[Rfam]
RNA sequence: GCGCUCGCCAUGGCUCGGUCCUUCCCAUGUGGUCCUGACCUGCCUCAGUGAGCAAGAGAAAGAGGACUGAUCUGGGGGUGUCCUGUCCGAGUGGCCACAGGAUGCCACGGUUUUCAGUGCAACA
Numbered sequence: 001g002c003g004c005u006c007g008c009c010a011u012g013g014c015u016c017g018g019u020c021c022u023u024c025c026c027a028u029g030u031g032g033u034c035c036u037g038a039c040c041u042g043c044c045u046c047a048g049u050g051a052g053c054a055a056g057a058g059a060a061a062g063a064g065g066a067c068u069g070a071u072c073u074g075g076g077g078g079u080g081u082c083c084u085g086u087c088c089g090a091g092u093g094g095c096c097a098c099a100g101g102a103u104g105c106c107a108c109g110g111u112u113u114u115c116a117g118u119g120c121a122a123c124a
Stems, first nucleotide, its partner, number of pairs: 003053006012044003017040004025032002064120001066118005072110003077106008085096001087094002

Background
This 124-nucleotide sequence from Orycteropus afer belongs to the Rfam family "Small Cajal body specific RNA 23". Rfam's curators write: scaRNAs are a specific class of small nuclear RNAs which localise to the Cajal bodies and guide the modification of RNA polymerase II transcribed spliceosomal RNAs U1, U2, U4, U5 and U12. ACA11 belongs to the H/ACA box class of guide RNAs as it has the predicted hairpin-hinge-hairpin-tail structure,the conserved H/ACA-box motifs and is found associated with GAR1. H/ACA snRNAs are predicted to guide the modification of uridines to pseudouridines in substrate RNAs however, no target RNA has been identified for scaRNA ACA11. The base pairs follow the family's consensus structure, which was predicted with RNAfold. It scores 130 bits against the family's covariance model. Gene Ontology terms of the family: nucleolus, Cajal body and RNA processing. For this family Rfam cites "Cajal body-specific small nuclear RNAs: a novel class of 2'-O-methylation and pseudouridylation guide RNAs" (Darzacq et al., EMBO J, 2002).